[Rfam]
RNA sequence: GACCCGAACCUGGGUGAUCUAUCCAUGACCAGGAUGAAGCUUGGGUGAAACUAAGUGGAGGUCCGAACCGACUGAUGUUGAAGAAUCAGCGGAUGAGUUGUGGUUAGGGGUGAAAUGCCACUCGAACCCAGAGCUAGCUGGUUCUCCCCGAAAUGCGUUGAGGCGCAGCAGUUGACUGGACAUCUAGGGGUAAAGCACUGUUUCGGUGCGGGCCGCGAGAGCGGUACCAAAUCGAGGCAAACUCUGAAUACUAGAUAUGACCCAAAAAUAAGAGGGAUCAAGGUCGGCCAGUGAGACGAUGGGGGAUAAGCUUCAUCGUCGAGAGGGAAACAGCCCGGAUCACCAGCUAAGGCCCCUAAAUGACCGCUCAGUGAUAAAGGAGGUAGGGGUGCAGAGACAGCCAGGAGGUUUGCCUAGAAGCAGCCACCCUUGAAAGAGUGCGUAAUAGCUCACUGAUCGAGCGCUCUUGCGCCGAAGAUGAACGGGGCUAAGCGAUCUGCCGAAGCUGUGGGAUGUAAAAAUGCAUCGGUAGGGGAGCGUUCCGCCUUAGAGCGAAGCACCCGCGCAAGCAGGUGUGGACGAAGCGGAAGUGAGAAU
Numbered sequence: 001g002a003c004c005c006g007a008a009c010c011u012g013g014g015u016g017a018u019c020u021a022u023c024c025a026u027g028a029c030c031a032g033g034a035u036g037a038a039g040c041u042u043g044g045g046u047g048a049a050a051c052u053a054a055g056u057g058g059a060g061g062u063c064c065g066a067a068c069c070g071a072c073u074g075a076u077g078u079u080g081a082a083g084a085a086u087c088a089g090c091g092g093a094u095g096a097g098u099u100g101u102g103g104u105u106a107g108g109g110g111u112g113a114a115a116u117g118c119c120a121c122u123c124g125a126a127c128c129c130a131g132a133g134c135u136a137g138c139u140g141g142u143u144c145u146c147c148c149c150g151a152a153a154u155g156c157g158u159u160g161a162g163g164c165g166c167a168g169c170a171g172u173u174g175a176c177u178g179g180a181c182a183u184c185u186a187g188g189g190g191u192a193a194a195g196c197a198c199u200g201u202u203u204c205g206g207u208g209c210g211g212g213c214c215g216c217g218a219g220a221g222c223g224g225u226a227c228c229a230a231a232u233c234g235a236g237g238c239a240a241a242c243u244c245u246g247a248a249u250a251c252u253a254g255a256u257a258u259g260a261c262c263c264a265a266a267a268a269u270a271a272g273a274g275g276g277a278u279c280a281a282g283g284u285c286g287g288c289c290a291g292u293g294a295g296a297c298g299a300u301g302g303g304g305g306a307u308a309a310g311c312u313u314c315a316u317c318g319u320c321g322a323g324a325g326g327g328a329a330a331c332a333g334c335c336c337g338g339a340u341c342a343c344c345a346g347c348u349a350a351g352g353c354c355c356c357u358a359a360a361u362g363a364c365c366g367c368u369c370a371g372u373g374a375u376a377a378a379g380g381a382g383g384u385a386g387g388g389g390u391g392c393a394g395a396g397a398c399a400g401c402c403a404g405g406a407g408g409u410u411u412g413c414c415u416a417g418a419a420g421c422a423g424c425c426a427c428c429c430u431u432g433a434a435a436g437a438g439u440g441c442g443u444a445a446u447a448g449c450u451c452a453c454u455g456a457u458c459g460a461g462c463g464c465u466c467u468u469g470c471g472c473c474g475a476a477g478a479u480g481a482a483c484g485g486g487g488c489u490a491a492g493c494g495a496u497c498u499g500c501c502g503a504a505g506c507u508g509u510g511g512g513a514u515g516u517a518a519a520a521a522u523g524c525a526u527c528g529g530u531a532g533g534g535g536a537g538c539g540u541u542c543c544g545c546c547u548u549a550g551a552g553c554g555a556a557g558c559a560c561c562c563g564c565g566c567a568a569g570c571a572g573g574u575g576u577g578g579a580c581g582a583a584g585c586g587g588a589a590g591u592g593a594g595a596a597u
Stems, first nucleotide, its partner, number of pairs: 003141002006138001010131006019107003023103007030095001032064004039056006068092003073088004109119003144537006154167005169291001171288005182256006193245001194243002200238008211227001212225005295320007303313002325336003340511003344508004351501003360498001362497002365494003379473002383470010400457001402455003406430003412424002431435001436451001440449002512527006538592001540589006547583002550580001557576005563570002
The family of this 597-nucleotide part of an RNA from Musa balbisiana is "Archaeal large subunit ribosomal RNA". The base pairs follow the family's consensus structure, which is taken from published work. NCBI's taxonomy places the organism under Eukaryota, Tracheophyta, Euphyllophyta, commelinids, Musa. A search with the family's covariance model found it, with a score of 1484 bits. The literature on the family includes a 2001 paper in Science by Yusupov et al., "Crystal structure of the ribosome at 5.5 A resolution".